This 102-nucleotide RNA sequence from Halobacteroides halobius belongs to the Rfam family "Purine riboswitch aptamer". On this family, see Batey et al., Nature 2004: "Structure of a natural guanine-responsive riboswitch complexed with the metabolite hypoxanthine".
[Rfam]
RNA sequence: AAUAUUAUAAAAAUAUAAUUCCGUAUAAUCUCGGGAAUAGGGCCCGGAAGUUUCUACCGACUAGCCACAAACUGGUCGACUACGGGAUAGUAAUAGAUUAAU
Number, nucleotide and partner (000 for none) at each position: 001a000002a000003u000004a000005u000006u000007a000008u000009a000010a000011a000012a000013a000014u000015a000016u000017a000018a088019u087020u086021c085022c084023g083024u082025a081026u000027a000028a000029u049030c000031u047032c046033g045034g044035g043036a000037a000038u000039a000040g000041g000042g000043c035044c034045c033046g032047g031048a000049a029050g000051u000052u000053u000054c000055u000056a000057c000058c078059g077060a076061c075062u074063a073064g072065c000066c000067a000068c000069a000070a000071a000072c064073u063074g062075g061076u060077c059078g058079a000080c000081u025082a024083c023084g022085g021086g020087a019088u018089a000090g000091u000092a000093a000094u000095a000096g000097a000098u000099u000100a000101a000102u000